[Rfam]
RNA sequence: AAGCAUGUCAGUAGGACACUUUUUGGUCUGUCCUUUGUAUCUCUCACAGGCUUCAUAGAGGGAUUCACCUUCUUUCUAUUUGAAGAUUUGAACAUCCACUCUAAGCUU
Numbered sequence: 001a002a003g004c005a006u007g008u009c010a011g012u013a014g015g016a017c018a019c020u021u022u023u024u025g026g027u028c029u030g031u032c033c034u035u036u037g038u039a040u041c042u043c044u045c046a047c048a049g050g051c052u053u054c055a056u057a058g059a060g061g062g063a064u065u066c067a068c069c070u071u072c073u074u075u076c077u078a079u080u081u082g083a084a085g086a087u088u089u090g091a092a093c094a095u096c097c098a099c100u101c102u103a104a105g106c107u108u
Stems, first nucleotide, its partner, number of pairs: 001108001003106002006103002058075002061072001

Rfam assigns this 108-nucleotide sequence from Arachis hypogaea to the family "Plant small nucleolar RNA R71". Its family is annotated with nucleolus and RNA processing in the Gene Ontology. A reference for the family is Brown et al. (2003), "Plant snoRNAs: functional evolution and new modes of gene expression", Trends Plant Sci. By type it is a C/D-box small nucleolar RNA.